A member of the RNA family "mir-7563 microRNA precursor family" from Ameiurus melas, 76 nucleotides long. A search with the family's covariance model found it, with a score of 84 bits. The family's consensus secondary structure was predicted with RNAalifold.
RNA sequence: ACUGUGUACUUACCUCCUAUAUAGUAGGUGAGAUGCGUGUAUUUCAGCUACUAUAUAGUAGGUAAGUACGCUGUUU
Numbered sequence: 001a002c003u004g005u006g007u008a009c010u011u012a013c014c015u016c017c018u019a020u021a022u023a024g025u026a027g028g029u030g031a032g033a034u035g036c037g038u039g040u041a042u043u044u045c046a047g048c049u050a051c052u053a054u055a056u057a058g059u060a061g062g063u064a065a066g067u068a069c070g071c072u073g074u075u076u
Stems, first nucleotide, its partner, number of pairs: 001074002004071012017058011029046003033042003
Gene Ontology terms of the family: miRNA-mediated post-transcriptional gene silencing and RISC complex.